Rfam assigns this 85-nucleotide sequence from Peptoclostridium litorale to the family "c-di-GMP-I riboswitch aptamer". The source organism's lineage runs through Bacteria, Clostridia, Peptostreptococcales, Peptoclostridium and Peptoclostridium litorale. GEMM was predicted in a large-scale screen for bacterial structured RNA regulatory elements. The base pairs follow the family's consensus structure, which is taken from published work.
[Rfam]
RNA sequence: UGAAAAAUUGGGCAAACCUGCCGAAAGACAGGGACGCAAAGCUAUGGGUCUAAGGAAGAGAUUCUAUGACUGCCAGGCUGCUAAA
Numbered sequence: 001u002g003a004a005a006a007a008u009u010g011g012g013c014a015a016a017c018c019u020g021c022c023g024a025a026a027g028a029c030a031g032g033g034a035c036g037c038a039a040a041g042c043u044a045u046g047g048g049u050c051u052a053a054g055g056a057a058g059a060g061a062u063u064c065u066a067u068g069a070c071u072g073c074c075a076g077g078c079u080g081c082u083a084a085a
Stems, first nucleotide, its partner, number of pairs: 012037002017032004022027001040079004045075003048070003055064003
Dot-bracket structure: ...........((...((((.(....).))))...))..((((.((((((....(((....)))...)))..)))))))......